About this RNA:
Shown here is an 85-nucleotide sequence from Astyanax mexicanus, a member of the family "mir-184 microRNA precursor family".

[Rfam]
RNA sequence: UCGACCACAUCUCCUUAUCACUUUUCCAGCCCAGCUUUUUUUUAAGUGCCCGUUGGACGGAGAACUGAUAAGGGCAUGUGCCCGA
Number, nucleotide and partner (000 for none) at each position: 001u000002c000003g000004a000005c000006c000007a000008c000009a000010u000011c000012u074013c073014c072015u071016u070017a069018u068019c067020a066021c000022u064023u063024u062025u061026c060027c059028a000029g000030c056031c055032c000033a000034g000035c000036u000037u000038u000039u000040u000041u000042u000043u000044a000045a000046g000047u000048g000049c000050c000051c000052g000053u000054u000055g031056g030057a000058c000059g027060g026061a025062g024063a023064a022065c000066u020067g019068a018069u017070a016071a015072g014073g013074g012075c000076a000077u000078g000079u000080g000081c000082c000083c000084g000085a000
Record summary
On this family, see Chen et al., Genes Dev 2005: "The developmental miRNA profiles of zebrafish as determined by small RNA cloning". The match comes from Rfam's covariance-model search (81 bits).